[Rfam]
RNA: mir-2 microRNA precursor family
RNA sequence: ACUGUCUUCAAAGUGGCAGUGACAUGUUGUCAACAAUAUUCAUAUCACAGCCAGCUUUGAGGAGCGUUG
Numbered sequence: 001a002c003u004g005u006c007u008u009c010a011a012a013g014u015g016g017c018a019g020u021g022a023c024a025u026g027u028u029g030u031c032a033a034c035a036a037u038a039u040u041c042a043u044a045u046c047a048c049a050g051c052c053a054g055c056u057u058u059g060a061g062g063a064g065c066g067u068u069g
Stems, first nucleotide, its partner, number of pairs: 005063009014053004019048004025044003